[Rfam]
RNA sequence: AUACAAUCUCAAAGCCUAUCUUCCUCAAGUAACCCUUCUUUCACCACCACCACCAACUCAAUCAAAAUGACUCCCUGCUCCUGCAACUCCUGCAGCUGCUCCAGCGACUGCAACGGCUGCAAGUGCACCUCUUGCGGUGUAUGUAUCU
Numbered sequence: 001a002u003a004c005a006a007u008c009u010c011a012a013a014g015c016c017u018a019u020c021u022u023c024c025u026c027a028a029g030u031a032a033c034c035c036u037u038c039u040u041u042c043a044c045c046a047c048c049a050c051c052a053c054c055a056a057c058u059c060a061a062u063c064a065a066a067a068u069g070a071c072u073c074c075c076u077g078c079u080c081c082u083g084c085a086a087c088u089c090c091u092g093c094a095g096c097u098g099c100u101c102c103a104g105c106g107a108c109u110g111c112a113a114c115g116g117c118u119g120c121a122a123g124u125g126c127a128c129c130u131c132u133u134g135c136g137g138u139g140u141a142u143g144u145a146u147c148u
Stems, first nucleotide, its partner, number of pairs: 076106004083099003110135003119126002

Annotation
The family of this 148-nucleotide RNA sequence from Aspergillus felis is "A. fumigatus sRNA Afu_254". The literature on the family includes a 2008 paper in Nucleic Acids Res by Jochl et al., "Small ncRNA transcriptome analysis from Aspergillus fumigatus suggests a novel mechanism for regulation of protein synthesis". The match comes from Rfam's covariance-model search (83 bits). The organism belongs to Aspergillus subgen. Fumigati, within Eukaryota.